The record is a 147-nucleotide sequence from Phyllobacterium sp. YR620, which matches "Alphaproteobacterial sRNA ar7" in Rfam. The base pairs follow the family's consensus structure. The match comes from Rfam's covariance-model search (61 bits). On this family, see del Val et al., RNA Biol 2012: "A survey of sRNA families in alpha-proteobacteria".
RNA sequence: UGUCGACGUUAGAUCGAUGUCCGGAUUUAAGGCUCGUCCCCCGCCUGACCCCGGACUGCGGGCCAACCUCAUCCCCCUCUCCAGGGUUGACCGCAAAUGAGUGUAGUGAUCUGGUCGCCUGUGGUCCCCCCGCCACGGCGACCAUUU
Numbered sequence: 001u002g003u004c005g006a007c008g009u010u011a012g013a014u015c016g017a018u019g020u021c022c023g024g025a026u027u028u029a030a031g032g033c034u035c036g037u038c039c040c041c042c043g044c045c046u047g048a049c050c051c052c053g054g055a056c057u058g059c060g061g062g063c064c065a066a067c068c069u070c071a072u073c074c075c076c077c078u079c080u081c082c083a084g085g086g087u088u089g090a091c092c093g094c095a096a097a098u099g100a101g102u103g104u105a106g107u108g109a110u111c112u113g114g115u116c117g118c119c120u121g122u123g124g125u126c127c128c129c130c131c132g133c134c135a136c137g138g139c140g141a142c143c144a145u146u147u
Base pairs, nucleotide, nucleotide: 020055021054022053023052024051031045032044033043058094059093060092061091063089065087067085068084106143115141116140117139118138119137121136122135123134124133125132